[Rfam]
RNA sequence: GGACGGUGAAGAUUGUAUCUAUUGGUCUCGUUCGUCGUAACUGGCAUCUGUGUGCCUUGCCGAAAAUUCUGAUAUAUCACCACCCAUAUUUCGAGUCU
Numbered sequence: 001g002g003a004c005g006g007u008g009a010a011g012a013u014u015g016u017a018u019c020u021a022u023u024g025g026u027c028u029c030g031u032u033c034g035u036c037g038u039a040a041c042u043g044g045c046a047u048c049u050g051u052g053u054g055c056c057u058u059g060c061c062g063a064a065a066a067u068u069c070u071g072a073u074a075u076a077u078c079a080c081c082a083c084c085c086a087u088a089u090u091u092c093g094a095g096u097c098u
Base pairs, nucleotide, nucleotide: 001098002097003096004095046058

Record summary:
Small nucleolar RNA Z43: a 98-nucleotide RNA sequence from Digitaria exilis. Rfam links the family to the GO terms RNA processing and nucleolus. The literature on the family includes a 2003 paper in Nucleic Acids Res by Chen et al., "The high diversity of snoRNAs in plants: identification and comparative study of 120 snoRNA genes from Oryza sativa". The base pairs follow the family's consensus structure, which was predicted with PFOLD. A search with the family's covariance model found it, with a score of 87 bits.